[Rfam]
RNA: tRNA
Organism: Sphaerisporangium melleum
RNA sequence: UCCGGCGUAGGGUAAUUGGCAGCCCACCUGCCUUUGGAGCAGGGUUGUCCUGGUUCGAGUCCAGGCGCCGGAA
Numbered sequence: 001u002c003c004g005g006c007g008u009a010g011g012g013u014a015a016u017u018g019g020c021a022g023c024c025c026a027c028c029u030g031c032c033u034u035u036g037g038a039g040c041a042g043g044g045u046u047g048u049c050c051u052g053g054u055u056c057g058a059g060u061c062c063a064g065g066c067g068c069c070g071g072a073a
Base pairs, nucleotide, nucleotide: 001072002071003070004069005068006067007066010025011024012023013022027043028042029041030040031039049065050064051063052062053061